Record summary
Rfam assigns this 120-nucleotide RNA sequence from Jaculus jaculus to the family "Small nucleolar RNA SNORA40". The literature on the family includes a 1997 paper in J Mol Biol by Ofengand and Bakin, "Mapping to nucleotide resolution of pseudouridine residues in large subunit ribosomal RNAs from representative eukaryotes, prokaryotes, archaebacteria, mitochondria and chloroplasts". Rfam classes the family as an H/ACA-box small nucleolar RNA.

RNA sequence: UGGACUUGUCUUUGUUGAACUAAUGGACUUAAAGAUGGGUGCAAAAACAAAUCCUCUUUUGCCAUCCAGAACACUUGUUAAGUAUAAGUAUGGGUUUUGAUACAUAAAAGAAGGAAUAUG
Numbered sequence: 001u002g003g004a005c006u007u008g009u010c011u012u013u014g015u016u017g018a019a020c021u022a023a024u025g026g027a028c029u030u031a032a033a034g035a036u037g038g039g040u041g042c043a044a045a046a047a048c049a050a051a052u053c054c055u056c057u058u059u060u061g062c063c064a065u066c067c068a069g070a071a072c073a074c075u076u077g078u079u080a081a082g083u084a085u086a087a088g089u090a091u092g093g094g095u096u097u098u099g100a101u102a103c104a105u106a107a108a109a110g111a112a113g114g115a116a117u118a119u120g
Base pairs, nucleotide, nucleotide: 001043002042004040005039006038007037008036009035011033014028015027020025051117052116054114055113057111058110059109060108067099068098069097070096071095072094074092076090077089078088079087
About this RNA: The snoRNA ACA 40 belongs to the H/ACA family of snoRNAs and guides the pseudouridylation of 28S rRNA subunit at position U4565. NB This family has a high threshold value to exclude a large number of closely related sequences that do not appear to have conserved H and ACA boxes, and may be pseudogenes.